[Rfam]
RNA sequence: GGCCACUCGAUGGGAGAAGCCGGACCCCGCUUGGGAGCGCCGGUGCCGAAGGAGCAAUCGCCCCCGGAAACUCUCAGGCAAAAGGACCAUCGGGUACCG
Dot-bracket structure: .....((((((((......((((................)))).(((((..(((...(.......)....))))).))).......)))))))).....
Overview: Shown here is a 99-nucleotide sequence from Georhizobium profundi, a member of the family "Glycine riboswitch aptamer". The match comes from Rfam's covariance-model search (62 bits). NCBI's taxonomy places the organism under Bacteria, Alphaproteobacteria, Hyphomicrobiales, Rhizobiaceae, Georhizobium.